[Rfam]
This 151-nucleotide RNA from Thermincola carboxydiphila belongs to the Rfam family "c-di-GMP-I-GGC riboswitch aptamer".
The base pairs follow the family's consensus structure, which is taken from published work.
Rfam 15.1 lists 1,298 matches to the family in 717 species.
The source organism's lineage runs through Bacteria, Eubacteriales, Thermincolaceae, Thermincola and Thermincola carboxydiphila.
RNA sequence: UCCCGAAACGGCAAACCAGGUGAAAAUCUGGGACGCAAAGCCACGGGUCUACGAAUUGGUGACUAGUGACCAGUGACCGGUAAAUAAAAAAUAGACCGGUUACUGGCUGUGGACCACUGGUCGCUGAUUUACGACAGCCGGGUUACCGAAG
Numbered sequence: 001u002c003c004c005g006a007a008a009c010g011g012c013a014a015a016c017c018a019g020g021u022g023a024a025a026a027u028c029u030g031g032g033a034c035g036c037a038a039a040g041c042c043a044c045g046g047g048u049c050u051a052c053g054a055a056u057u058g059g060u061g062a063c064u065a066g067u068g069a070c071c072a073g074u075g076a077c078c079g080g081u082a083a084a085u086a087a088a089a090a091a092u093a094g095a096c097c098g099g100u101u102a103c104u105g106g107c108u109g110u111g112g113a114c115c116a117c118u119g120g121u122c123g124c125u126g127a128u129u130u131a132c133g134a135c136a137g138c139c140g141g142g143u144u145a146c147c148g149a150a151g
Stems, first nucleotide, its partner, number of pairs: 001151001003148001011036002016031006034137001039144004044140003047135003